Annotation: Shown here is a 465-nucleotide RNA sequence from Sorangium cellulosum, a member of the family "Bacterial RNase P class A". The organism belongs to Sorangium cellulosum, within Bacteria. It scores 237 bits against the family's covariance model. Ribonuclease P (RNase P) is a ubiquitous endoribonuclease, found in archaea, bacteria and eukarya as well as chloroplasts and mitochondria.
RNA sequence: GCAGCGGGACAGGCGAUCGCCGGCGGACGGGGAAACCCGGCCGCGGGAGGAAAGUCCGAGCUCCGCAGGGCAGGGUGCCGGGUAACGCCCGGUGAGAGCGAUCUCGAGGAAAGUGCAACAGAGAACAGACCGCCGCGCCGCGCGCUUCGCAAGGGCAACGAGCCUCCAGCCCGGAUGGGCUGGGCUCCGAGCCUCCGCUGGCUCGCCGCGCGGCAAGGGUGAAACGGCGGGGUAAGAGCCCACCGCGCCCUUGGCAACAAGGGCGGCACGGCAAACCCCACCUGGAGCAAGGCCGCGUAGGGAGGCGUCUGCGACGGCGACAGCCGCCGCGGCAAGGGCUGCCCGCCCCAGGCCUCCGGGUUGGCUGCUUGAGGCGCGUGGCGACGCGCGUCCUAGAGGAAUGAUCGCCGGCGCGAGGGGGGCGACUCCCCGCGCAACAGAACUCGGCUUACGUCUCCUGCGACC
Numbered sequence: 001g002c003a004g005c006g007g008g009a010c011a012g013g014c015g016a017u018c019g020c021c022g023g024c025g026g027a028c029g030g031g032g033a034a035a036c037c038c039g040g041c042c043g044c045g046g047g048a049g050g051a052a053a054g055u056c057c058g059a060g061c062u063c064c065g066c067a068g069g070g071c072a073g074g075g076u077g078c079c080g081g082g083u084a085a086c087g088c089c090c091g092g093u094g095a096g097a098g099c100g101a102u103c104u105c106g107a108g109g110a111a112a113g114u115g116c117a118a119c120a121g122a123g124a125a126c127a128g129a130c131c132g133c134c135g136c137g138c139c140g141c142g143c144g145c146u147u148c149g150c151a152a153g154g155g156c157a158a159c160g161a162g163c164c165u166c167c168a169g170c171c172c173g174g175a176u177g178g179g180c181u182g183g184g185c186u187c188c189g190a191g192c193c194u195c196c197g198c199u200g201g202c203u204c205g206c207c208g209c210g211c212g213g214c215a216a217g218g219g220u221g222a223a224a225c226g227g228c229g230g231g232g233u234a235a236g237a238g239c240c241c242a243c244c245g246c247g248c249c250c251u252u253g254g255c256a257a258c259a260a261g262g263g264c265g266g267c268a269c270g271g272c273a274a275a276c277c278c279c280a281c282c283u284g285g286a287g288c289a290a291g292g293c294c295g296c297g298u299a300g301g302g303a304g305g306c307g308u309c310u311g312c313g314a315c316g317g318c319g320a321c322a323g324c325c326g327c328c329g330c331g332g333c334a335a336g337g338g339c340u341g342c343c344c345g346c347c348c349c350a351g352g353c354c355u356c357c358g359g360g361u362u363g364g365c366u367g368c369u370u371g372a373g374g375c376g377c378g379u380g381g382c383g384a385c386g387c388g389c390g391u392c393c394u395a396g397a398g399g400a401a402u403g404a405u406c407g408c409c410g411g412c413g414c415g416a417g418g419g420g421g422g423c424g425a426c427u428c429c430c431c432g433c434g435c436a437a438c439a440g441a442a443c444u445c446g447g448c449u450u451a452c453g454u455c456u457c458c459u460g461c462g463a464c465c
Base pairs, nucleotide, nucleotide: 001461002460003459004458006457007456008455009454010453012409013408014407015406016405017404018403020047021046023044024043025042026041028039029038030037052450053449054448056447057446058445059444060443061287062286063285064284068344069343070342071341073283074282075281076280077279078092079091080090081089082088093107094105095104096103097102108278109277113276114275115272116271130218131217132214133213134212135211136210137209138208140206141205142204226244227243229241230240231239245267246265247264248263249262250261251260252259253258291366292365293364294363301357302356303355304354305353306352336348337347338346339345373392374391375390376389377388378387379386380385